A member of the RNA family "freshwater-2 RNA", 83 nucleotides long. Rfam classes the family as a cis-regulatory element.
RNA sequence: UGUGCCGCAAGGCGGACUUAUGCUGUACCCACAGCGUAGCAGCUAGAACCUGCAUCGGACUUCUAAAUAGGAGAAAACAAAUG
Numbered sequence: 001u002g003u004g005c006c007g008c009a010a011g012g013c014g015g016a017c018u019u020a021u022g023c024u025g026u027a028c029c030c031a032c033a034g035c036g037u038a039g040c041a042g043c044u045a046g047a048a049c050c051u052g053c054a055u056c057g058g059a060c061u062u063c064u065a066a067a068u069a070g071g072a073g074a075a076a077a078c079a080a081a082u083g
Stems, first nucleotide, its partner, number of pairs: 001016001003014004019038007039053004
The sequence is in the family's curated seed alignment.